This 136-nucleotide sequence from Sesamum indicum belongs to the Rfam family "MIR390 microRNA precursor family".
Gene Ontology terms of the family: RISC complex and miRNA-mediated post-transcriptional gene silencing.
RNA sequence: UUGAAAGAUCUGUGAAGCUCAGGAGGGAUAGCGCCACGGCCUCGAUCGACUGGUUUCAGGUACGUACCGUCGUUGGUUUUCAACUUAAUUUGCAGUCAAGUGGCGCUAUCCAUCCUGAGUUCCAUGGCUCCUUCUU
Numbered sequence: 001u002u003g004a005a006a007g008a009u010c011u012g013u014g015a016a017g018c019u020c021a022g023g024a025g026g027g028a029u030a031g032c033g034c035c036a037c038g039g040c041c042u043c044g045a046u047c048g049a050c051u052g053g054u055u056u057c058a059g060g061u062a063c064g065u066a067c068c069g070u071c072g073u074u075g076g077u078u079u080u081c082a083a084c085u086u087a088a089u090u091u092g093c094a095g096u097c098a099a100g101u102g103g104c105g106c107u108a109u110c111c112a113u114c115c116u117g118a119g120u121u122c123c124a125u126g127g128c129u130c131c132u133u134c135u136u
Stems, first nucleotide, its partner, number of pairs: 010127001016121009026111012
Dot-bracket structure: .........(.....(((((((((.((((((((((((..............................................................)))))))))))).))))))))).....).........
The match comes from Rfam's covariance-model search (88 bits). The organism belongs to Sesamum, within Eukaryota. On this family, see Gustafson et al., Nucleic Acids Res 2005: "ASRP: the Arabidopsis Small RNA Project Database".